[Rfam]
RNA sequence: GACUGGUCCAAGUGCAGUGGUGUUUACAACCUAUUGAUCACAACCAGUUAUAGAUUGCUUAGUUCCUUCUUCAUUCCCACUGUUUCACUGAACUAGCAAAA
Numbered sequence: 001g002a003c004u005g006g007u008c009c010a011a012g013u014g015c016a017g018u019g020g021u022g023u024u025u026a027c028a029a030c031c032u033a034u035u036g037a038u039c040a041c042a043a044c045c046a047g048u049u050a051u052a053g054a055u056u057g058c059u060u061a062g063u064u065c066c067u068u069c070u071u072c073a074u075u076c077c078c079a080c081u082g083u084u085u086c087a088c089u090g091a092a093c094u095a096g097c098a099a100a101a
Base pairs, nucleotide, nucleotide: 003096004095005094006093007092011089014086016081017080018079019078020077022076028064029063030062033059
Dot-bracket structure: ..(((((...(..(.(((((.(.....(((..(.........................)..)))...........))))))....)..)..))))).....